[Rfam]
RNA: SAM riboswitch aptamer (S box leader)
RNA sequence: CUCUUAUUACGAGUGGUUGAGGGACUGGCCCUAUGACACCCGGCAACCUUUCAUUUCGAUGAAAAGGUGCUAAAUCCUGCAAGGAAUCUUUUUUCCUUGAAAAAUGAGAG
Numbered sequence: 001c002u003c004u005u006a007u008u009a010c011g012a013g014u015g016g017u018u019g020a021g022g023g024a025c026u027g028g029c030c031c032u033a034u035g036a037c038a039c040c041c042g043g044c045a046a047c048c049u050u051u052c053a054u055u056u057c058g059a060u061g062a063a064a065a066g067g068u069g070c071u072a073a074a075u076c077c078u079g080c081a082a083g084g085a086a087u088c089u090u091u092u093u094u095c096c097u098u099g100a101a102a103a104a105u106g107a108g109a110g
Base pairs, nucleotide, nucleotide: 001110002109003108004107005106006105007104008103013041015040016039017038021031022030023029025079027077028076042071043070044069045068047067048066049063050062051061075102080099081098082097083096084095085094